Nucleotides: 135
Base pairs, nucleotide, nucleotide: 002059003058004057005056006055007054016045021038022037023036024035069129070128071127072126073125074124075123083114084113088109089108090107091106
Number, partner (000 for none) and nucleotide at each position: 001000u002059g003058g004057a005056g006055a007054c008000c009000g010000g011000a012000u013000a014000c015000a016045g017000u018000g019000u020000a021038u022037a023036a024035c025000u026000g027000g028000a029000g030000u031000u032000g033000c034000u035024g036023u037022u038021a039000u040000a041000c042000a043000g044000u045016c046000a047000c048000a049000u050000a051000u052000u053000u054007g055006u056005c057004u058003c059002c060000u061000a062000u063000a064000u065000c066000a067000a068000u069129u070128c071127a072126c073125u074124c075123u076000a077000u078000g079000a080000u081000u082000a083114c084113c085000c086000c087000a088109g089108a090107g091106c092000u093000u094000a095000a096000a097000a098000a099000u100000a101000u102000a103000u104000c105000a106091g107090c108089u109088c110000u111000g112000u113084g114083g115000a116000c117000a118000g119000a120000u121000a122000c123075g124074g125073a126072g127071u128070g129069g130000a131000c132000a133000g134000u135000g
Notes
A member of the RNA family "Small Cajal body specific RNA 8" from Bugula neritina, 135 nucleotides long. The literature on the family includes a 2002 paper in EMBO J by Darzacq et al., "Cajal body-specific small nuclear RNAs: a novel class of 2'-O-methylation and pseudouridylation guide RNAs". The family's RNA type in Rfam is small Cajal body RNA. Rfam links the family to the GO terms Cajal body, nucleolus and RNA processing.